[Rfam]
Nucleotides: 084
Stems, first nucleotide, its partner, number of pairs: 001084004
Number, partner (000 for none) and nucleotide at each position: 001084c002083a003082g004081c005000u006000a007000u008000g009000a010000u011000g012000a013000a014000a015000g016000a017000a018000u019000a020000a021000a022000g023000a024000c025000a026000u027000g028000g029000u030000u031000u032000c033000g034000c035000u036000a037000a038000a039000a040000c041000u042000a043000a044000c045000u046000g047000a048000a049000u050000u051000g052000u053000u054000u055000u056000u057000a058000u059000g060000u061000u062000g063000a064000u065000u066000g067000u068000c069000u070000u071000g072000g073000c074000u075000g076000u077000c078000u079000g080000a081004g082003c083002u084001g